[Rfam]
RNA sequence: GGCUGGUCGGAAUGCAGUGGAGUUUACAAGUCAUUGAUCACAACUAGUUACAGAUUUGUUUCUCCUCCACUCCCACUGCUUUUUUUUUUUUUGGACUAGCCAAAA
Numbered sequence: 001g002g003c004u005g006g007u008c009g010g011a012a013u014g015c016a017g018u019g020g021a022g023u024u025u026a027c028a029a030g031u032c033a034u035u036g037a038u039c040a041c042a043a044c045u046a047g048u049u050a051c052a053g054a055u056u057u058g059u060u061u062c063u064c065c066u067c068c069a070c071u072c073c074c075a076c077u078g079c080u081u082u083u084u085u086u087u088u089u090u091u092u093g094g095a096c097u098a099g100c101c102a103a104a105a
Stems, first nucleotide, its partner, number of pairs: 001101008010086002014082001016077005022072001033059002036056002
Dot-bracket structure: ((((((((.((..(.(((((.(..........((.((.................)).))............))))))....)..)).......))))))))....

This 105-nucleotide RNA from Macaca mulatta belongs to the Rfam family "Y RNA". The family's RNA type in Rfam is non-coding RNA gene. The source organism's lineage runs through Eukaryota, Tetrapoda, Simiiformes, Cercopithecidae and Macaca. Y RNAs are components of the Ro ribonucleoprotein particle (Ro RNP), in association with Ro60 and La proteins.